[Rfam]
RNA: Small nucleolar RNA SNORD11B
RNA sequence: GCCAAGCAGUGAUGAUGUCGAUUUUAUGUCUCUUUACUGAAAUGUACUGAUGGUUUUAGGUCACUACCUCAUCUGAGCUUGUU
Numbered sequence: 001g002c003c004a005a006g007c008a009g010u011g012a013u014g015a016u017g018u019c020g021a022u023u024u025u026a027u028g029u030c031u032c033u034u035u036a037c038u039g040a041a042a043u044g045u046a047c048u049g050a051u052g053g054u055u056u057u058a059g060g061u062c063a064c065u066a067c068c069u070c071a072u073c074u075g076a077g078c079u080u081g082u083u
Stems, first nucleotide, its partner, number of pairs: 003081005